RNA sequence: GGACGAACCUCUGGAGAGACUCAAUGGAGCACCGAAGGGGAAAGCCAUAAAGAUGUGGUGAAACUCUCAGGUAAAAGGACAGGGGAUUUUGA
Numbered sequence: 001g002g003a004c005g006a007a008c009c010u011c012u013g014g015a016g017a018g019a020c021u022c023a024a025u026g027g028a029g030c031a032c033c034g035a036a037g038g039g040g041a042a043a044g045c046c047a048u049a050a051a052g053a054u055g056u057g058g059u060g061a062a063a064c065u066c067u068c069a070g071g072u073a074a075a076a077g078g079a080c081a082g083g084g085g086a087u088u089u090u091g092a
Stems, first nucleotide, its partner, number of pairs: 006087001008085006020029003031072003034068002038066003044059004
Rfam assigns this 92-nucleotide RNA from Clostridium fungisolvens to the family "Glycine riboswitch aptamer". The organism belongs to Clostridium, within Bacteria. Its family is annotated with glycine biosynthetic process in the Gene Ontology.